[Rfam]
RNA sequence: ACUUCCAUAUUUGAACCUCAAGGGCCUUCCAUAAGACCCGGUGACAAUUUUUGGGAGCUCACUGCAAGUGAGCA
Dot-bracket structure: .....................(((.(((....))).))).................(((((((...))))))).
This 74-nucleotide sequence from Caenorhabditis auriculariae belongs to the Rfam family "SmY spliceosomal RNA". It scores 47 bits against the family's covariance model. Lineage of the source: Eukaryota > Ecdysozoa > Rhabditidae > Peloderinae > Caenorhabditis.